Rfam assigns this 305-nucleotide RNA from Ziziphus jujuba to the family "Plant signal recognition particle RNA". The family has 63 seed sequences and 4,988 matches in Rfam 15.1. Its Rfam clan is "SRP clan". The family's consensus secondary structure is taken from published work. The match comes from Rfam's covariance-model search (228 bits).
[Rfam]
RNA sequence: GCCGAGCUAAGUAACGAGAGCUUGUAACUCAAGUGAGGGCUGUAAAGUGGUUGGACAGCAGCUUGACCUUCUUGGGAGGGUUGGCAGGUGAACAAAUCUGGCUUGCCCAUUCCAAGUUGAGAGUUGGGCCUUGUGGCUUAGGCGAAGGCUCGCUCCACUGAGCUCCUGGAGGCAGAGGGCACCGCGUGAGGCUGGUUUCACAGAGCAGCGAUAACCUCCCGCUCUCAGCAGUGGAAGGAUAACGGGCCGGCGCACUGUCAACCCAUAAUGCCUAGUGGGCUGAGCGUGGCUGAACAACCUUUUUU
Numbered sequence: 001g002c003c004g005a006g007c008u009a010a011g012u013a014a015c016g017a018g019a020g021c022u023u024g025u026a027a028c029u030c031a032a033g034u035g036a037g038g039g040c041u042g043u044a045a046a047g048u049g050g051u052u053g054g055a056c057a058g059c060a061g062c063u064u065g066a067c068c069u070u071c072u073u074g075g076g077a078g079g080g081u082u083g084g085c086a087g088g089u090g091a092a093c094a095a096a097u098c099u100g101g102c103u104u105g106c107c108c109a110u111u112c113c114a115a116g117u118u119g120a121g122a123g124u125u126g127g128g129c130c131u132u133g134u135g136g137c138u139u140a141g142g143c144g145a146a147g148g149c150u151c152g153c154u155c156c157a158c159u160g161a162g163c164u165c166c167u168g169g170a171g172g173c174a175g176a177g178g179g180c181a182c183c184g185c186g187u188g189a190g191g192c193u194g195g196u197u198u199c200a201c202a203g204a205g206c207a208g209c210g211a212u213a214a215c216c217u218c219c220c221g222c223u224c225u226c227a228g229c230a231g232u233g234g235a236a237g238g239a240u241a242a243c244g245g246g247c248c249g250g251c252g253c254a255c256u257g258u259c260a261a262c263c264c265a266u267a268a269u270g271c272c273u274a275g276u277g278g279g280c281u282g283a284g285c286g287u288g289g290c291u292g293a294a295c296a297a298c299c300u301u302u303u304u305u
Stems, first nucleotide, its partner, number of pairs: 001040003004023005028037003044304004049299005056292002059288002061285005068279003072275005078264009088255003098250008107238002110236005116229009126165004131160001133158004139152001141150003166171001175218004185210003192203003